The record is a 63-nucleotide sequence from Phyllobacterium myrsinacearum, which matches "Fluoride riboswitch aptamer (crcB RNA motif)" in Rfam.

[Rfam]
RNA sequence: UAACGUACUGGGAAUGGGGUUCUCCCAAUAACCGCCAUGAUGGCUGAUGACUCCUGCUUUUAA
Number, nucleotide and partner (000 for none) at each position: 001u000002a000003a000004c000005g000006u000007a000008c000009u000010g026011g025012g024013a023014a000015u000016g054017g053018g052019g051020u050021u049022c000023u013024c012025c011026c010027a000028a000029u000030a000031a000032c000033c000034g044035c043036c042037a000038u000039g000040a000041u000042g036043g035044c034045u000046g000047a000048u000049g021050a020051c019052u018053c017054c016055u000056g000057c000058u000059u000060u000061u000062a000063a000